[Rfam]
RNA sequence: GAAGCUGGCCAGACAGUCGCCGCCUGUGCAAACAGGGGGAGGAAAGUCCGGGCUCCGCAGAGCAGGAUGACGGCUAACGGCCGUACGCCGCGAGGCGAGGAAUAGGGCCACAGAGACGAGUAAGCCGCGCUUCGGCGCGGUGGACGUGAAACGCGGUAACCUCCAUCCGGAGCAAGACCAAAUAGGGGAACAAUGGCGUGGCUCGCGCUGUUCCCGGGUAGGUUGCUUGAGCCUGCGAGCAAUCGCAGGCCUAGAGGAAUGACUGUCCACGACAGAACCCGGCUUAUCGGCCAGCUUCUUUU
Number, nucleotide and partner (000 for none) at each position: 001g298002a297003a296004g295005c294006u293007g292008g291009c290010c289011a287012g267013a266014c265015a264016g263017u262018c261019g000020c039021c038022g000023c036024c035025u034026g033027u032028g000029c000030a000031a000032a027033c026034a025035g024036g023037g000038g021039g020040a000041g000042g000043a000044a285045a284046g283047u000048c282049c281050g280051g279052g278053c172054u171055c170056c169057g000058c000059a000060g204061a203062g202063c201064a000065g168066g167067a166068u165069g164070a084071c083072g082073g081074c080075u000076a000077a000078c000079g000080g074081c073082c072083g071084u070085a000086c097087g096088c095089c094090g000091c000092g000093a000094g089095g088096c087097g086098a000099g000100g163101a162102a000103u000104a000105g161106g160107g157108c156109c155110a000111c000112a000113g000114a000115g000116a000117c000118g000119a000120g000121u000122a000123a000124g141125c140126c139127g138128c137129g136130c135131u000132u000133c000134g000135g130136c129137g128138c127139g126140g125141u124142g000143g000144a000145c000146g000147u000148g000149a000150a000151a000152c000153g000154c000155g109156g108157u107158a000159a000160c106161c105162u101163c100164c069165a068166u067167c066168c065169g056170g055171a054172g053173c000174a000175a000176g224177a223178c222179c221180a000181a000182a000183u000184a000185g000186g215187g214188g213189a212190a211191c210192a000193a000194u000195g209196g208197c207198g206199u205200g000201g063202c062203u061204c060205g199206c198207g197208c196209u195210g191211u190212u189213c188214c187215c186216g000217g000218g000219u000220a000221g179222g178223u177224u176225g000226c000227u000228u000229g000230a000231g250232c249233c248234u247235g246236c245237g244238a243239g000240c000241a000242a000243u238244c237245g236246c235247a234248g233249g232250c231251c000252u000253a000254g000255a000256g000257g000258a000259a000260u000261g018262a017263c016264u015265g014266u013267c012268c000269a000270c000271g000272a000273c000274a000275g000276a000277a000278c052279c051280c050281g049282g048283c046284u045285u044286a000287u011288c000289g010290g009291c008292c007293a006294g005295c004296u003297u002298c001299u000300u000301u000302u000